[Rfam]
Nucleotides: 168
Base pairs, nucleotide, nucleotide: 020050021049022048023047024046025045026044027043029041059091060090061089062088063087068080069079070078071077092108093107094106095105096104097103112158113157114156115155116154117153118152126143127142128141129140130139131138132137
Number, partner (000 for none) and nucleotide at each position: 001000a002000a003000u004000c005000a006000a007000a008000u009000a010000u011000a012000a013000g014000c015000g016000c017000c018000a019000g020050g021049a022048c023047u024046a025045a026044u027043c028000c029041g030000c031000g032000g033000a034000c035000g036000a037000c038000a039000a040000a041029u042000g043027g044026a045025u046024u047023a048022g049021u050020u051000g052000a053000c054000g055000a056000g057000g058000u059091g060090g061089g062088g063087g064000u065000u066000u067000a068080u069079c070078g071077a072000a073000g074000u075000u076000u077071u078070c079069g080068g081000c082000g083000g084000a085000u086000g087063c088062c089061u090060c091059c092108c093107g094106g095105u096104u097103u098000c099000a100000a101000g102000c103097a104096a105095a106094c107093c108092g109000a110000u111000a112158u113157c114156u115155c116154a117153u118152c119000u120000u121000u122000a123000a124000a125000a126143c127142a128141u129140u130139a131138g132137g133000g134000u135000a136000a137132c138131c139130u140129a141128a142127u143126g144000c145000a146000c147000a148000a149000a150000g151000g152118g153117a154116u155115g156114g157113g158112a159000a160000u161000g162000c163000u164000a165000g166000u167000a168000g

Notes:
The family of this 168-nucleotide RNA sequence from Cytobacillus dafuensis is "glmS glucosamine-6-phosphate activated ribozyme aptamer". Taxonomically the source falls in Cytobacillus (Bacteria, Bacillota, Caryophanales, Bacillaceae). It is annotated as a riboswitch.